[Rfam]
RNA sequence: UAGGUAGUUUCAUGUUGUUGGGAUUGAGUUUUGAACUCGGCAACAAGAAACUGCCUGAG
Numbered sequence: 001u002a003g004g005u006a007g008u009u010u011c012a013u014g015u016u017g018u019u020g021g022g023a024u025u026g027a028g029u030u031u032u033g034a035a036c037u038c039g040g041c042a043a044c045a046a047g048a049a050a051c052u053g054c055c056u057g058a059g
Base pairs, nucleotide, nucleotide: 001057002056003055004054005053006052007051008050009049010048013045014044015043016042017041018040019039020038021037022036
Source information
mir-196 microRNA precursor family: a 59-nucleotide RNA sequence from Tupaia belangeri. The base pairs follow the family's consensus structure, which was predicted with PFOLD. It is one of the family's seed sequences.